[Rfam]
RNA sequence: GGCACAAGGGGAGACAGGGACGCUCCGAGGGGAACGCGGUCACCUCAGGUCCUCGGUGUUGAGUCAAUGGUGAGACCGGCCCAUGUGGC
Numbered sequence: 001g002g003c004a005c006a007a008g009g010g011g012a013g014a015c016a017g018g019g020a021c022g023c024u025c026c027g028a029g030g031g032g033a034a035c036g037c038g039g040u041c042a043c044c045u046c047a048g049g050u051c052c053u054c055g056g057u058g059u060u061g062a063g064u065c066a067a068u069g070g071u072g073a074g075a076c077c078g079g080c081c082c083a084u085g086u087g088g089c
Base pairs, nucleotide, nucleotide: 001089003087004086005085006084009082010081011080013065014064015063022059023058025056026055027054028053029052038077039076040073041072042071043070044069
RNA: c-di-GMP-II-GAG riboswitch aptamer